[Rfam]
RNA sequence: GGAUGUGAGGGCGAUCUGGCUGCGACAUCUGUCACCCCAUUGAUCGCCAGGGUUGAUUCGGCUGAUCUGGUUGGCUAGGCGGGUGUCCCCUUCCUCCCUCAACGAUCCAUGUGCGUCCCUCCCGAAGCUGCGCGCUCAGUCAAAGAGGACGACCACCCCCGAUAGAGGAGGACCAUUCCUCGGUCAAGGGUAUACGAGUAGCUGCGCUCCCCUGCUAGAACCUCCAAACAAGCUCUCAAAAUAAAAGAAGGUGUGGUACAGAUGGACCAAAAAAAUCUUUUCUACUUCAGUAACCUAACUUCAACAGACUUAC
Numbered sequence: 001g002g003a004u005g006u007g008a009g010g011g012c013g014a015u016c017u018g019g020c021u022g023c024g025a026c027a028u029c030u031g032u033c034a035c036c037c038c039a040u041u042g043a044u045c046g047c048c049a050g051g052g053u054u055g056a057u058u059c060g061g062c063u064g065a066u067c068u069g070g071u072u073g074g075c076u077a078g079g080c081g082g083g084u085g086u087c088c089c090c091u092u093c094c095u096c097c098c099u100c101a102a103c104g105a106u107c108c109a110u111g112u113g114c115g116u117c118c119c120u121c122c123c124g125a126a127g128c129u130g131c132g133c134g135c136u137c138a139g140u141c142a143a144a145g146a147g148g149a150c151g152a153c154c155a156c157c158c159c160c161g162a163u164a165g166a167g168g169a170g171g172a173c174c175a176u177u178c179c180u181c182g183g184u185c186a187a188g189g190g191u192a193u194a195c196g197a198g199u200a201g202c203u204g205c206g207c208u209c210c211c212c213u214g215c216u217a218g219a220a221c222c223u224c225c226a227a228a229c230a231a232g233c234u235c236u237c238a239a240a241a242u243a244a245a246a247g248a249a250g251g252u253g254u255g256g257u258a259c260a261g262a263u264g265g266a267c268c269a270a271a272a273a274a275a276u277c278u279u280u281u282c283u284a285c286u287u288c289a290g291u292a293a294c295c296u297a298a299c300u301u302c303a304a305c306a307g308a309c310u311u312a313c
Stems, first nucleotide, its partner, number of pairs: 001108003006101006013093002018090002024087010035074002037070003042067004046062003116171002118168004122139001124137002127135002140162002147158002201267001203265001207261002212256004222250002225247001290313003